[Rfam]
RNA: mir-71 microRNA precursor family
RNA sequence: UCUCCAUGAAAGACAAGGUAGUGAGAUAAAAAAAGUGUGAACAUCUCACUACCCAUGUCUUUCACAGAGCU
Numbered sequence: 001u002c003u004c005c006a007u008g009a010a011a012g013a014c015a016a017g018g019u020a021g022u023g024a025g026a027u028a029a030a031a032a033a034a035g036u037g038u039g040a041a042c043a044u045c046u047c048a049c050u051a052c053c054c055a056u057g058u059c060u061u062u063c064a065c066a067g068a069g070c071u
Stems, first nucleotide, its partner, number of pairs: 008063008017053002020050008